Annotation:
Shown here is a 119-nucleotide RNA sequence from Attibartonella tamiae, a member of the family "Rhizobiales sRNA Atu_C8". By type it is a small RNA. On this family, see Wilms et al., RNA Biol 2012: "Deep sequencing uncovers numerous small RNAs on all four replicons of the plant pathogen Agrobacterium tumefaciens". Lineage of the source: Bacteria > Pseudomonadota > Bartonellaceae > Attibartonella > Attibartonella tamiae. The family's consensus secondary structure was predicted with CMfinder.
RNA sequence: UAUGGAAAAAAUGAUUAUUCUAGUGGUAGGCAGGCACAUGGGGUGGAUGGUUUAACCAUCUGGCUUAGGUCUCCCAUGUGCAUGUAGGCUCCCUCGGGGGCCUUUUUUAUUUUCGCUUU
Numbered sequence: 001u002a003u004g005g006a007a008a009a010a011a012u013g014a015u016u017a018u019u020c021u022a023g024u025g026g027u028a029g030g031c032a033g034g035c036a037c038a039u040g041g042g043g044u045g046g047a048u049g050g051u052u053u054a055a056c057c058a059u060c061u062g063g064c065u066u067a068g069g070u071c072u073c074c075c076a077u078g079u080g081c082a083u084g085u086a087g088g089c090u091c092c093c094u095c096g097g098g099g100g101c102c103u104u105u106u107u108u109a110u111u112u113u114c115g116c117u118u119u
Stems, first nucleotide, its partner, number of pairs: 030114001032112001034081009045061006063070002084104001086103007